[Rfam]
Nucleotides: 111
Stems, first nucleotide, its partner, number of pairs: 001065005009024006037056002040053004071104009080091003
Number, partner (000 for none) and nucleotide at each position: 001065a002064c003063a004062g005061a006000u007000a008000g009024g010023a011022a012021g013020u014019u015000g016000u017000g018000a019014a020013a021012c022011u023010u024009c025000c026000c027000c028000c029000a030000a031000u032000a033000g034000a035000a036000u037056a038055g039000u040053u041052u042051a043050g044000u045000u046000a047000a048000g049000u050043c051042u052041a053040g054000u055038u056037u057000a058000g059000u060000u061005u062004u063003u064002g065001u066000g067000u068000g069000a070000a071104a072103c073102g074101c075100u076099u077098c078097c079096c080091c081090g082089u083000u084000a085000g086000c087000g088000a089082a090081c091080g092000a093000c094000u095000c096079g097078g098077g099076a100075a101074g102073c103072g104071u105000u106000u107000u108000u109000u110000u111000a
This 111-nucleotide RNA sequence from Bacteroidaceae bacterium HV4-6-C5C belongs to the Rfam family "Bacteroides sRNA BTnc049". NCBI's taxonomy places the organism under Bacteria, Pseudomonadati, Bacteroidia, Bacteroidales, Bacteroidaceae. The literature on the family includes a 2020 paper in Nat Commun by Ryan et al., "A high-resolution transcriptome map identifies small RNA regulation of metabolism in the gut microbe Bacteroides thetaiotaomicron". It scores 113 bits against the family's covariance model.